The record is a 74-nucleotide RNA from Strigamia maritima, which matches "mir-130 microRNA precursor family" in Rfam.
[Rfam]
RNA sequence: UCCAAAUGACACUUCUUCUAACAUUGCUGCACUGUUGCCAACAGGGCAGCAAUGUUAGAAGAAGUGUCAUUGGA
Numbered sequence: 001u002c003c004a005a006a007u008g009a010c011a012c013u014u015c016u017u018c019u020a021a022c023a024u025u026g027c028u029g030c031a032c033u034g035u036u037g038c039c040a041a042c043a044g045g046g047c048a049g050c051a052a053u054g055u056u057a058g059a060a061g062a063a064g065u066g067u068c069a070u071u072g073g074a
Stems, first nucleotide, its partner, number of pairs: 001074003005071006012064008022054009
Dot-bracket structure: (((.((((((.((((((((..(((((((((...............)))))))))..)))))))).)))))))))
Pairs were carried over by alignment from the consensus structure, which was predicted with PFOLD. NCBI's taxonomy places the organism under Eukaryota, Ecdysozoa, Pleurostigmophora, Epimorpha, Strigamia.